[Rfam]
RNA sequence: GCGGAGGGCUGGAUGACCGCGGGGCCGCAAGGUUUCGAGGAAAGUCCGGACUCCCGUUGGCAAGGGUGCCGGGUAACGCCCGGCGGGGGCAACCCCAGGGAAAGCGCCACAGAGAAGAGACAGCCCCGGUCGCGAACGAAGGUUCGCCUUCGCGAACGCCGGGGUCAUGGUGAAACGGUGGGGUAAGAGCCCACCGCGGACUUGGCGACAAGGACGGCACGGCAAGCCCCACCCGGAGCAAUGCCAAAUAGGGGCCUCGCGCGGGGGCCGGUCGGGAAACCGAGACCGCCCGCAGGGAUGCCAACGCCCGAGAGGCCCGGGUUGGCAGCUUGACCGCCGUGGCAACACGGUUGGCAGAGGAAUGGUCAUCCAGGGGCGCAAGCCCUGGACAAAAUCCGGCUUACAGGCUCUCCGCGCAA
Numbered sequence: 001g002c003g004g005a006g007g008g009c010u011g012g013a014u015g016a017c018c019g020c021g022g023g024g025c026c027g028c029a030a031g032g033u034u035u036c037g038a039g040g041a042a043a044g045u046c047c048g049g050a051c052u053c054c055c056g057u058u059g060g061c062a063a064g065g066g067u068g069c070c071g072g073g074u075a076a077c078g079c080c081c082g083g084c085g086g087g088g089g090c091a092a093c094c095c096c097a098g099g100g101a102a103a104g105c106g107c108c109a110c111a112g113a114g115a116a117g118a119g120a121c122a123g124c125c126c127c128g129g130u131c132g133c134g135a136a137c138g139a140a141g142g143u144u145c146g147c148c149u150u151c152g153c154g155a156a157c158g159c160c161g162g163g164g165u166c167a168u169g170g171u172g173a174a175a176c177g178g179u180g181g182g183g184u185a186a187g188a189g190c191c192c193a194c195c196g197c198g199g200a201c202u203u204g205g206c207g208a209c210a211a212g213g214a215c216g217g218c219a220c221g222g223c224a225a226g227c228c229c230c231a232c233c234c235g236g237a238g239c240a241a242u243g244c245c246a247a248a249u250a251g252g253g254g255c256c257u258c259g260c261g262c263g264g265g266g267g268c269c270g271g272u273c274g275g276g277a278a279a280c281c282g283a284g285a286c287c288g289c290c291c292g293c294a295g296g297g298a299u300g301c302c303a304a305c306g307c308c309c310g311a312g313a314g315g316c317c318c319g320g321g322u323u324g325g326c327a328g329c330u331u332g333a334c335c336g337c338c339g340u341g342g343c344a345a346c347a348c349g350g351u352u353g354g355c356a357g358a359g360g361a362a363u364g365g366u367c368a369u370c371c372a373g374g375g376g377c378g379c380a381a382g383c384c385c386u387g388g389a390c391a392a393a394a395u396c397c398g399g400c401u402u403a404c405a406g407g408c409u410c411u412c413c414g415c416g417c418a419a
Stems, first nucleotide, its partner, number of pairs: 001415010011404001012370007020037007042402003046399005051238004064234005069083005084098001085096004099229002104227002106223003121169002123165008177195006196218001197216002201212004242327004252318006334353001336351006
A member of the RNA family "Bacterial RNase P class A" from a Verrucomicrobiaceae bacterium, 419 nucleotides long. A search with the family's covariance model found it, with a score of 254 bits. The source organism's lineage runs through Bacteria, Verrucomicrobiota, Verrucomicrobiia, Verrucomicrobiales and Verrucomicrobiaceae. Rfam classes the family as a ribozyme. Its family is annotated with dimeric ribonuclease P complex, ribonuclease P activity and tRNA processing in the Gene Ontology.